[Rfam]
RNA sequence: AGUCGAGAGUUUGAGGCCAUAACAGAAGCACUCAAGGCACGGCCAUGUCAGAUUCCAGUGAAUCUGUUAAUUCUGGU
Numbered sequence: 001a002g003u004c005g006a007g008a009g010u011u012u013g014a015g016g017c018c019a020u021a022a023c024a025g026a027a028g029c030a031c032u033c034a035a036g037g038c039a040c041g042g043c044c045a046u047g048u049c050a051g052a053u054u055c056c057a058g059u060g061a062a063u064c065u066g067u068u069a070a071u072u073c074u075g076g077u
Stems, first nucleotide, its partner, number of pairs: 015044004021077001023075005028040001049066007
Dot-bracket structure: ..............[[[[..(.((((((...........)]]]]....(((((((....)))))))....))))).)
Shown here is a 77-nucleotide RNA from Crocodylus porosus, a member of the family "Mammalian CPEB3 ribozyme". The organism belongs to Crocodylus, within Eukaryota. A search with the family's covariance model found it, with a score of 45 bits. The mammalian CPEB3 ribozyme is a self cleaving RNA located in the second intron of the CPEB3 gene which belongs to a family of genes regulating messenger RNA polyadenylation. For this family Rfam cites "Autocatalytic RNA cleavage in the human beta-globin pre-mRNA promotes transcription termination" (Teixeira et al., Nature, 2004).